[Rfam]
RNA sequence: ACUGAGGUUGGCAUGAGUACAAGGAAGCUAUCAUCUCAAA
Numbered sequence: 001a002c003u004g005a006g007g008u009u010g011g012c013a014u015g016a017g018u019a020c021a022a023g024g025a026a027g028c029u030a031u032c033a034u035c036u037c038a039a040a
Stems, first nucleotide, its partner, number of pairs: 003038006009030004
This 40-nucleotide RNA from Vicugna pacos belongs to the Rfam family "MAT2A 3'UTR stem loop D". By type it is a cis-regulatory element. For this family Rfam cites "New families of human regulatory RNA structures identified by comparative analysis of vertebrate genomes" (Parker et al., Genome Res, 2011). The source organism's lineage runs through Eukaryota, Opisthokonta, Mammalia, Artiodactyla and Vicugna.